[Rfam]
RNA: SAM riboswitch aptamer (S box leader)
RNA sequence: CUCUUAUUCAGAGUGACGGAGAGUAAAGGCUCUAUGAAGUCACGGCAACCCCAUGGUAUGGAAGGUGCCAACCUGAGCGAGUUAUCGAACAAUAAGAG
Numbered sequence: 001c002u003c004u005u006a007u008u009c010a011g012a013g014u015g016a017c018g019g020a021g022a023g024u025a026a027a028g029g030c031u032c033u034a035u036g037a038a039g040u041c042a043c044g045g046c047a048a049c050c051c052c053a054u055g056g057u058a059u060g061g062a063a064g065g066u067g068c069c070a071a072c073c074u075g076a077g078c079g080a081g082u083u084a085u086c087g088a089a090c091a092a093u094a095a096g097a098g
Base pairs, nucleotide, nucleotide: 001098002097003096004095005094006093007092008091013043014042015041016040017039021032022031023030029074044069045068046067047066049065050064051061052060053059054058078087079086080085